A member of the RNA family "small nucleolar RNA snoR126" from Genlisea aurea, 99 nucleotides long. By type it is a C/D-box small nucleolar RNA.
RNA sequence: GGGCGAUGAAGAGAAAAAUUAGCAUUUCUCGAUGCUGAGUUUUGAAUCUGUGGACCUCAUUUGUUCACGUUGAUGACUUUUUAUGCGUGUCCGAGCCCU
Numbered sequence: 001g002g003g004c005g006a007u008g009a010a011g012a013g014a015a016a017a018a019u020u021a022g023c024a025u026u027u028c029u030c031g032a033u034g035c036u037g038a039g040u041u042u043u044g045a046a047u048c049u050g051u052g053g054a055c056c057u058c059a060u061u062u063g064u065u066c067a068c069g070u071u072g073a074u075g076a077c078u079u080u081u082u083a084u085g086c087g088u089g090u091c092c093g094a095g096c097c098c099u
Stems, first nucleotide, its partner, number of pairs: 001098004
Taxonomically the source falls in Genlisea (Eukaryota, Viridiplantae, Magnoliopsida, eudicotyledons). The match comes from Rfam's covariance-model search (54 bits).